[Rfam]
RNA sequence: UUUUAAUGAUGAAAACAACAGACCUGAUUUGAAACCAAUUUGAGAAUGUAUUUCUACUUCUGAAAAAA
Numbered sequence: 001u002u003u004u005a006a007u008g009a010u011g012a013a014a015a016c017a018a019c020a021g022a023c024c025u026g027a028u029u030u031g032a033a034a035c036c037a038a039u040u041u042g043a044g045a046a047u048g049u050a051u052u053u054c055u056a057c058u059u060c061u062g063a064a065a066a067a068a
Base pairs, nucleotide, nucleotide: 001067002066003065004064